[Rfam]
RNA sequence: GGGGACCUACGGGGCCCCUUAACCAACGGACCCUCUGGUCCAAAGCAAACGGAAGACAGAAA
Numbered sequence: 001g002g003g004g005a006c007c008u009a010c011g012g013g014g015c016c017c018c019u020u021a022a023c024c025a026a027c028g029g030a031c032c033c034u035c036u037g038g039u040c041c042a043a044a045g046c047a048a049a050c051g052g053a054a055g056a057c058a059g060a061a062a
Stems, first nucleotide, its partner, number of pairs: 001018004006014003028041005
RNA: L2-Alphaproteobacteria ribosomal protein leader